[Rfam]
Overview: Shown here is a 111-nucleotide RNA from Paenibacillus sp. 32O-W, a member of the family "epsC RNA". It is annotated as a cis-regulatory element. The organism belongs to Paenibacillus, within Bacteria. The family's consensus secondary structure is taken from published work.
RNA sequence: AGGUAAAGUCUACUGUACCUUUAUCACUGUAGGCACUCGGUCACGCUGUGGGUUUGCCGACCUUAGACGUUUAUCGUCGAGGGUGUGACGUGAGGGAGGGUUGAAUGCCCG
Numbered sequence: 001a002g003g004u005a006a007a008g009u010c011u012a013c014u015g016u017a018c019c020u021u022u023a024u025c026a027c028u029g030u031a032g033g034c035a036c037u038c039g040g041u042c043a044c045g046c047u048g049u050g051g052g053u054u055u056g057c058c059g060a061c062c063u064u065a066g067a068c069g070u071u072u073a074u075c076g077u078c079g080a081g082g083g084u085g086u087g088a089c090g091u092g093a094g095g096g097a098g099g100g101u102u103g104a105a106u107g108c109c110c111g
Stems, first nucleotide, its partner, number of pairs: 001020004008034006036094004040089008050063005066078004098110004
Dot-bracket structure: [[[[...((((((...]]]]........)))))).((((((((((((..(((((....)))))..((((.....))))...)))))))).))))...((((.....)))).